The family of this 103-nucleotide RNA from Clostridium sp. CT7 is "SAM riboswitch aptamer (S box leader)".
The organism belongs to Clostridium, within Bacteria.
RNA sequence: GUCUUAUCAAGAGUGGUGGAGGGACUGGCCCUUUGAAACCCGGCAACCAGUAUUUAAUUAUACGCGGUGCUAAUUCCUGCAGCGAUAUGCUGAUAGAUGAGAA
Numbered sequence: 001g002u003c004u005u006a007u008c009a010a011g012a013g014u015g016g017u018g019g020a021g022g023g024a025c026u027g028g029c030c031c032u033u034u035g036a037a038a039c040c041c042g043g044c045a046a047c048c049a050g051u052a053u054u055u056a057a058u059u060a061u062a063c064g065c066g067g068u069g070c071u072a073a074u075u076c077c078u079g080c081a082g083c084g085a086u087a088u089g090c091u092g093a094u095a096g097a098u099g100a101g102a103a
Stems, first nucleotide, its partner, number of pairs: 002102007013041001015040003021031003025079001027077002042071004047067002050063004075095001080092005
The family's consensus secondary structure is taken from published work.